[Rfam]
Shown here is a 174-nucleotide RNA sequence from Oryza meridionalis, a member of the family "MIR807 microRNA precursor family". The literature on the family includes a 2006 paper in FEBS Lett by Luo et al., "Rice embryogenic calli express a unique set of microRNAs, suggesting regulatory roles of microRNAs in plant post-embryogenic development". Its family is annotated with RISC complex and miRNA-mediated post-transcriptional gene silencing in the Gene Ontology. It scores 172 bits against the family's covariance model.
RNA sequence: AACCACACUAUCGAUGAAUGGAUUUACCCAUGAAAUGACAUGAUUGUUUCACCUAGGACGAGGACAUGCAUCCUAUUACCAUCCAUCACACGAAAUUAAUAGGAUGUCACGUCCUCAUCCUAGAUGGAAUAACCACGUCAUCUCAUGGGUGAAUCCAUUCAUCGAUAAUAAAUU
Numbered sequence: 001a002a003c004c005a006c007a008c009u010a011u012c013g014a015u016g017a018a019u020g021g022a023u024u025u026a027c028c029c030a031u032g033a034a035a036u037g038a039c040a041u042g043a044u045u046g047u048u049u050c051a052c053c054u055a056g057g058a059c060g061a062g063g064a065c066a067u068g069c070a071u072c073c074u075a076u077u078a079c080c081a082u083c084c085a086u087c088a089c090a091c092g093a094a095a096u097u098a099a100u101a102g103g104a105u106g107u108c109a110c111g112u113c114c115u116c117a118u119c120c121u122a123g124a125u126g127g128a129a130u131a132a133c134c135a136c137g138u139c140a141u142c143u144c145a146u147g148g149g150u151g152a153a154u155c156c157a158u159u160c161a162u163c164g165a166u167a168a169u170a171a172a173u174u
Stems, first nucleotide, its partner, number of pairs: 002174001007169001009167007017159003021155008030146004035141005041135002044132005051125001054122002057119002063113003068107011085096002

The family's consensus secondary structure was predicted with WAR. The organism belongs to Oryza, within Eukaryota.